[Rfam]
RNA sequence: GAAGCGGGCCAGACGAUCGCGCGACCAGCCCCCGUGGCAGGCGUGAGGAAAGUCCGGGCUCCAUAGGGCAAGAAGCUGGCUAACGGCCAGGCGGGGCAACCCGACGGAUUAGCGCCGCAGAAAAGAAGACUCCCGCUGCUCGUCUUAUGACGGGUGAGAGAAAAGCUGAAACGGUGGUGUAAGAGACCACCAGCGUCGUGGCAACACGGCGGCUUGGCAAGCCCCUUCCGGAGCAAGCGCGAAUAGGAGCGCCAUGGGUCGGCCCGGCCCGCGCUCGGGUAGCGUGCGAAGAACUGCACGGUGACGUGCAGGCGAGAUAAAUGAUCGUCCACGACAGAACCCGGCUUAUCGGCCCGCUUCGCCU
Numbered sequence: 001g002a003a004g005c006g007g008g009c010c011a012g013a014c015g016a017u018c019g020c021g022c023g024a025c026c027a028g029c030c031c032c033c034g035u036g037g038c039a040g041g042c043g044u045g046a047g048g049a050a051a052g053u054c055c056g057g058g059c060u061c062c063a064u065a066g067g068g069c070a071a072g073a074a075g076c077u078g079g080c081u082a083a084c085g086g087c088c089a090g091g092c093g094g095g096g097c098a099a100c101c102c103g104a105c106g107g108a109u110u111a112g113c114g115c116c117g118c119a120g121a122a123a124a125g126a127a128g129a130c131u132c133c134c135g136c137u138g139c140u141c142g143u144c145u146u147a148u149g150a151c152g153g154g155u156g157a158g159a160g161a162a163a164a165g166c167u168g169a170a171a172c173g174g175u176g177g178u179g180u181a182a183g184a185g186a187c188c189a190c191c192a193g194c195g196u197c198g199u200g201g202c203a204a205c206a207c208g209g210c211g212g213c214u215u216g217g218c219a220a221g222c223c224c225c226u227u228c229c230g231g232a233g234c235a236a237g238c239g240c241g242a243a244u245a246g247g248a249g250c251g252c253c254a255u256g257g258g259u260c261g262g263c264c265c266g267g268c269c270c271g272c273g274c275u276c277g278g279g280u281a282g283c284g285u286g287c288g289a290a291g292a293a294c295u296g297c298a299c300g301g302u303g304a305c306g307u308g309c310a311g312g313c314g315a316g317a318u319a320a321a322u323g324a325u326c327g328u329c330c331a332c333g334a335c336a337g338a339a340c341c342c343g344g345c346u347u348a349u350c351g352g353c354c355c356g357c358u359u360c361g362c363c364u
Stems, first nucleotide, its partner, number of pairs: 001360010011349001012329007020045004025040001050347003054344005059233004066265004072228004076090005091105001092103004106224002112222002114218003130165002133160001139158006173191006193213001194211007237285004247276006256270005294311007

Source information
Bacterial RNase P class A: a 364-nucleotide sequence from Collinsella intestinalis. About the family: Ribonuclease P (RNase P) is a ubiquitous endoribonuclease, found in archaea, bacteria and eukarya as well as chloroplasts and mitochondria. A search with the family's covariance model found it, with a score of 266 bits. Taxonomically the source falls in Collinsella (Bacteria, Bacillati, Coriobacteriales, Coriobacteriaceae). Gene Ontology terms of the family: dimeric ribonuclease P complex, tRNA processing and ribonuclease P activity.